[Rfam]
RNA: L31-Firmicutes ribosomal protein leader
Organism: Fregetta grallaria
RNA sequence: CUCUGUCCCAGGCAGAGUGGCUCAGGGCAAAAAGAG
Numbered sequence: 001c002u003c004u005g006u007c008c009c010a011g012g013c014a015g016a017g018u019g020g021c022u023c024a025g026g027g028c029a030a031a032a033a034g035a036g
Base pairs, nucleotide, nucleotide: 001027002026003025004024005023008020009019010018
Dot-bracket structure: (((((..(((.......)))..))))).........